[Rfam]
RNA sequence: AGGGGAAAUGCAGACUCCCCACCAGACGGCCCUUCCCGUCCAAGCUCUGC
Numbered sequence: 001a002g003g004g005g006a007a008a009u010g011c012a013g014a015c016u017c018c019c020c021a022c023c024a025g026a027c028g029g030c031c032c033u034u035c036c037c038g039u040c041c042a043a044g045c046u047c048u049g050c
Base pairs, nucleotide, nucleotide: 002020003019004018005017006016010050011049012048013047014046025040026039027038028037029036

Rfam assigns this 50-nucleotide sequence to the family "chrB-b RNA". The sequence is in the family's curated seed alignment. The base pairs follow the family's consensus structure, which is taken from published work.